[Rfam]
RNA sequence: CGGUUCCUGCUUCAACAGUGCUUGGACGAACUCG
Numbered sequence: 001c002g003g004u005u006c007c008u009g010c011u012u013c014a015a016c017a018g019u020g021c022u023u024g025g026a027c028g029a030a031c032u033c034g
Base pairs, nucleotide, nucleotide: 001034002033003031004030007028009027011026012025013024014023015022016020
Shown here is a 34-nucleotide RNA from Callithrix jacchus, a member of the family "Iron response element I". Rfam 15.1 lists 6,829 matches to the family in 599 species. It is annotated as a cis-regulatory element. It scores 39 bits against the family's covariance model. The source organism's lineage runs through Eukaryota, Opisthokonta, Sarcopterygii, Theria and Callithrix. The literature on the family includes a 1987 paper in Science by Hentze et al., "Identification of the iron-responsive element for the translational regulation of human ferritin mRNA".